[Rfam]
RNA sequence: CAGCGAGCCUCUGGAAAGUGCCCCGUGCAUGCGCACGUGGCCGCCGACGGUGUAACCCGGUCCGUCCCGUCGUGGAUGAUGCCGGGGAAGCUCUCAGGCUUCCGUGACAGAGGGGGCACC
Dot-bracket structure: .......((((((......(((................))).(((((..(.(...((((((...................))))))....).))).)))........)))))).......
Numbered sequence: 001c002a003g004c005g006a007g008c009c010u011c012u013g014g015a016a017a018g019u020g021c022c023c024c025g026u027g028c029a030u031g032c033g034c035a036c037g038u039g040g041c042c043g044c045c046g047a048c049g050g051u052g053u054a055a056c057c058c059g060g061u062c063c064g065u066c067c068c069g070u071c072g073u074g075g076a077u078g079a080u081g082c083c084g085g086g087g088a089a090g091c092u093c094u095c096a097g098g099c100u101u102c103c104g105u106g107a108c109a110g111a112g113g114g115g116g117c118a119c120c
Stems, first nucleotide, its partner, number of pairs: 008113006020041003043099003046095002050093001052091001056086006
Shown here is a 120-nucleotide RNA sequence from Novosphingobium sp. Leaf2, a member of the family "Glycine riboswitch aptamer".
Rfam links the family to the GO term glycine biosynthetic process.
Lineage of the source: Bacteria > Pseudomonadati > Sphingomonadales > Sphingomonadaceae > Novosphingobium.